[Rfam]
RNA: Nuclear RNase P
Nucleotides: 308
Stems, first nucleotide, its partner, number of pairs: 001308004008302003013257003018252001021060002024057002035049005068292005079232002089101003103118005119229007144214003258280003262276003
Number, partner (000 for none) and nucleotide at each position: 001308g002307g003306u004305g005000g006000g007000a008302g009301g010300a011000u012000g013257c014256u015255c016000a017000u018252c019000a020000g021060c022059a023000g024057g025056g026000c027000c028000a029000c030000g031000a032000g033000c034000u035049g036048a037047g038046a039045g040000u041000u042000c043000a044000u045039c046038u047037c048036u049035c050000c051000a052000u053000g054000g055000a056025c057024c058000g059022u060021g061000g062000g063000a064000a065000g066000g067000u068292c069291u070290g071289a072288g073000a074000c075000u076000g077000g078000a079232g080231c081000c082000u083000u084000c085000c086000c087000c088000u089101g090100c091099c092000c093000u094000a095000a096000c097000c098000a099091g100090g101089c102000u103118c104117u105116c106115c107114u108000c109000g110000a111000g112000c113000a114107g115106g116105g117104a118103g119229g120228u121227g122226a123225g124224u125223u126000c127000c128000c129000a130000g131000a132000g133000a134000g135000c136000a137000g138000g139000g140000a141000g142000g143000g144214g145213c146212u147000c148000c149000a150000c151000g152000c153000a154000u155000g156000g157000g158000c159000a160000g161000a162000c163000u164000g165000g166000a167000c168000a169000g170000g171000a172000g173000a174000a175000g176000c177000g178000a179000g180000g181000u182000a183000u184000c185000c186000g187000a188000g189000u190000g191000g192000g193000u194000g195000g196000a197000u198000a199000c200000c201000u202000c203000c204000c205000u206000u207000a208000c209000c210000a211000g212146a213145g214144c215000u216000u217000g218000g219000a220000a221000c222000a223125g224124a225123c226122u227121c228120a229119c230000u231080g232079c233000c234000u235000g236000c237000a238000g239000u240000g241000c242000g243000a244000g245000u246000u247000c248000a249000a250000u251000g252018g253000c254000a255015g256014a257013g258280g259279u260278g261000a262276g263275g264274c265000a266000c267000c268000u269000c270000u271000c272000g273000g274264g275263u276262c277000c278260c279259a280258u281000a282000a283000c284000c285000c286000a287000a288072u289071u290070c291069a292068g293000a294000c295000u296000a297000c298000u299000c300010u301009c302008c303000c304000c305004c306003g307002c308001c